The family of this 127-nucleotide sequence from Ligilactobacillus araffinosus is "Enterococcus sRNA 68 (Lacto-3 RNA)". It scores 73 bits against the family's covariance model. Pairs were carried over by alignment from the consensus structure, which is taken from published work. Rfam classes the family as a small RNA. Lineage of the source: Bacteria > Bacilli > Lactobacillales > Ligilactobacillus > Ligilactobacillus araffinosus.

RNA sequence: UGCGAUGAGUCGAGGAAAGCCGACCAGAGAUUUUCUGGUGUGCUGUGGCACAAGACGGCUUUAAAUCGAACGCGGACACCAUUACUGCCGGAUUGCAGGGUGGCGUUGAACUUUUGAUGUGGAUAAG
Dot-bracket structure: .................(((((((((((.....))))))((((....))))....)))))................((((....((((......))))))))...........((.((....)).))